[Rfam]
RNA sequence: AGUGGUGAUAGAGGUGCGGACUUUCAUCAGUAGAUGCUUCGAGGAGUAUGGGCUCUUAUGAAGGGUAUCGAAAGGGAAAUUCGCCGAAGUGGAAGCAGGCUCAUAUCUGUUUGCGCUGGUUCUGUGUUUAAGAGAUGCAGGAUUGUCAAGAUUAACAGUCUUGGAGAGCUAUCUCACGU
Numbered sequence: 001a002g003u004g005g006u007g008a009u010a011g012a013g014g015u016g017c018g019g020a021c022u023u024u025c026a027u028c029a030g031u032a033g034a035u036g037c038u039u040c041g042a043g044g045a046g047u048a049u050g051g052g053c054u055c056u057u058a059u060g061a062a063g064g065g066u067a068u069c070g071a072a073a074g075g076g077a078a079a080u081u082c083g084c085c086g087a088a089g090u091g092g093a094a095g096c097a098g099g100c101u102c103a104u105a106u107c108u109g110u111u112u113g114c115g116c117u118g119g120u121u122c123u124g125u126g127u128u129u130a131a132g133a134g135a136u137g138c139a140g141g142a143u144u145g146u147c148a149a150g151a152u153u154a155a156c157a158g159u160c161u162u163g164g165a166g167a168g169c170u171a172u173c174u175c176a177c178g179u
Stems, first nucleotide, its partner, number of pairs: 007173005016084005022078003033069007088117004093112007118144011146164007
RNA: Lysine riboswitch aptamer